[Rfam]
RNA sequence: AAGUCGUUGAGAACCUUUUGAAUCACUCCAUUACUUGAGUGAUUCAAAAGGUUCUCGCAAA
Numbered sequence: 001a002a003g004u005c006g007u008u009g010a011g012a013a014c015c016u017u018u019u020g021a022a023u024c025a026c027u028c029c030a031u032u033a034c035u036u037g038a039g040u041g042a043u044u045c046a047a048a049a050g051g052u053u054c055u056c057g058c059a060a061a
Stems, first nucleotide, its partner, number of pairs: 008057020